mraW RNA: a 104-nucleotide sequence from Mycolicibacterium litorale. The organism belongs to Mycobacterium (subgen. Mycolicibacterium), within Bacteria.
[Rfam]
RNA sequence: ACCGGCCCGUGCAGCGUGGCCUCUGUCCGAACCGGCCCUGGCGUACUUCCCCGACGCCAGGUCCGCCCCCUCGGACAGGGACCUCGCUGCAGGGGCACACAGCC
Numbered sequence: 001a002c003c004g005g006c007c008c009g010u011g012c013a014g015c016g017u018g019g020c021c022u023c024u025g026u027c028c029g030a031a032c033c034g035g036c037c038c039u040g041g042c043g044u045a046c047u048u049c050c051c052c053g054a055c056g057c058c059a060g061g062u063c064c065g066c067c068c069c070c071u072c073g074g075a076c077a078g079g080g081a082c083c084u085c086g087c088u089g090c091a092g093g094g095g096c097a098c099a100c101a102g103c104c
Stems, first nucleotide, its partner, number of pairs: 010091007018083002021080010033065003037061008